mir-995 microRNA precursor family: a 90-nucleotide RNA sequence from Drosophila persimilis.
The literature on the family includes a 2007 paper in Genome Res by Stark et al., "Systematic discovery and characterization of fly microRNAs using 12 Drosophila genomes".
RNA sequence: CUGCUGCACAACGCAGCCCGGAUUCUGUGUGUGCUGCGCUGUGUUCUUAAAAGCCGUAGCACCACAUGAUUCGGCUGCGUGGUCAGCCAC
Number, nucleotide and partner (000 for none) at each position: 001c000002u000003g088004c000005u086006g000007c000008a083009c082010a000011a080012c079013g078014c077015a076016g075017c074018c073019c000020g072021g071022a070023u069024u068025c000026u066027g065028u064029g063030u000031g062032u061033g060034c059035u058036g057037c056038g055039c000040u000041g000042u000043g000044u000045u000046c000047u000048u000049a000050a000051a000052a000053g000054c000055c038056g037057u036058a035059g034060c033061a032062c031063c029064a028065c027066a026067u000068g024069a023070u022071u021072c020073g018074g017075c016076u015077g014078c013079g012080u011081g000082g009083u008084c000085a000086g005087c000088c003089a000090c000

The organism belongs to Sophophora, within Eukaryota.